[Rfam]
RNA sequence: CGCCUAACCUUUAUAGAUUUUGUCCUAUGAAGUAUGGUUAAAACCCAUCCCUGGUAUUAAACUCCUCGUCAGACCACUCAGGGAUGGGUCUAUAAUCGAAAGGUUAUAGGAUAGUCGAAAGGCUGUC
Numbered sequence: 001c002g003c004c005u006a007a008c009c010u011u012u013a014u015a016g017a018u019u020u021u022g023u024c025c026u027a028u029g030a031a032g033u034a035u036g037g038u039u040a041a042a043a044c045c046c047a048u049c050c051c052u053g054g055u056a057u058u059a060a061a062c063u064c065c066u067c068g069u070c071a072g073a074c075c076a077c078u079c080a081g082g083g084a085u086g087g088g089u090c091u092a093u094a095a096u097c098g099a100a101a102g103g104u105u106a107u108a109g110g111a112u113a114g115u116c117g118a119a120a121g122g123c124u125g126u127c
Base pairs, nucleotide, nucleotide: 002038003037004036009032010031011030012029013028014027015026044088045087046086047085048084049083050082051081052080053079054078090109091108092107093106094105095104096103097102110127111126112125113124114123115122
The family of this 127-nucleotide sequence is "LOOT RNA". Pairs were carried over by alignment from the consensus structure, which is taken from published work.